[Rfam]
Shown here is a 213-nucleotide RNA sequence from Novosphingopyxis sp. YJ-S2-01, a member of the family "permuted transfer-messenger RNA". Rfam links the family to the GO term RNA catabolic process. The family's consensus secondary structure is taken from published work. Taxonomically the source falls in Novosphingopyxis (Bacteria, Pseudomonadota, Alphaproteobacteria, Sphingomonadales).
RNA sequence: GGCGAUAAAGUGUGUUGUGCAAUAGGCGCAGCGGACCCGGGGGCAGUACCCGGCGGCUCCACCAUAAACCGCAGUUUUCUGCGGCUCAUGACGGGGCCGAACCAGGAUCGACGUGUGUUGAAAGACAGCGCUUUCGCCCGGGCUGAGUAACCCGUUAAAGGCUCAAAACUCAUAAGUGCCAACGAUAACGAAGCACUUGCUCUUGCUGCGUAA
Numbered sequence: 001g002g003c004g005a006u007a008a009a010g011u012g013u014g015u016u017g018u019g020c021a022a023u024a025g026g027c028g029c030a031g032c033g034g035a036c037c038c039g040g041g042g043g044c045a046g047u048a049c050c051c052g053g054c055g056g057c058u059c060c061a062c063c064a065u066a067a068a069c070c071g072c073a074g075u076u077u078u079c080u081g082c083g084g085c086u087c088a089u090g091a092c093g094g095g096g097c098c099g100a101a102c103c104a105g106g107a108u109c110g111a112c113g114u115g116u117g118u119u120g121a122a123a124g125a126c127a128g129c130g131c132u133u134u135c136g137c138c139c140g141g142g143c144u145g146a147g148u149a150a151c152c153c154g155u156u157a158a159a160g161g162c163u164c165a166a167a168a169c170u171c172a173u174a175a176g177u178g179c180c181a182a183c184g185a186u187a188a189c190g191a192a193g194c195a196c197u198u199g200c201u202c203u204u205g206c207u208g209c210g211u212a213a
Stems, first nucleotide, its partner, number of pairs: 001138005015128004027117003031114003037053005054099007139154004